[Rfam]
This 120-nucleotide sequence from Glycine max belongs to the Rfam family "MIR1520 microRNA precursor family". NCBI's taxonomy places the organism under Eukaryota, Gunneridae, Fabales, Fabaceae, Glycine subgen. Soja. The family is grouped with related families in Rfam's "MIR1520 microRNA precursor clan". A search with the family's covariance model found it, with a score of 111 bits. Gene Ontology terms of the family: miRNA-mediated post-transcriptional gene silencing and RISC complex.
RNA sequence: UUCUUAUUGGAUGAUGACGGUCACGAGUCAUGUUCUGAUUGAUCAAUGAAAAUAAUAAUGCAUUUUAUCUUCCAUGGAGUUGACAUCCAAUAAGAAUAUGACACGUGACAAUCAUCAUCU
Number, nucleotide and partner (000 for none) at each position: 001u000002u000003c000004u000005u000006a000007u000008u000009g000010g000011a000012u000013g000014a000015u000016g000017a000018c000019g000020g109021u108022c107023a106024c000025g104026a000027g000028u000029c100030a099031u098032g000033u096034u095035c094036u093037g000038a091039u090040u089041g000042a000043u000044c000045a000046a000047u000048g000049a000050a000051a000052a000053u000054a000055a000056u000057a000058a000059u000060g000061c000062a000063u000064u000065u000066u000067a000068u000069c000070u000071u000072c000073c000074a000075u000076g000077g000078a000079g000080u000081u000082g000083a000084c000085a000086u000087c000088c000089a040090a039091u038092a000093a036094g035095a034096a033097u000098a031099u030100g029101a000102c000103a000104c025105g000106u023107g022108a021109c020110a000111a000112u000113c000114a000115u000116c000117a000118u000119c000120u000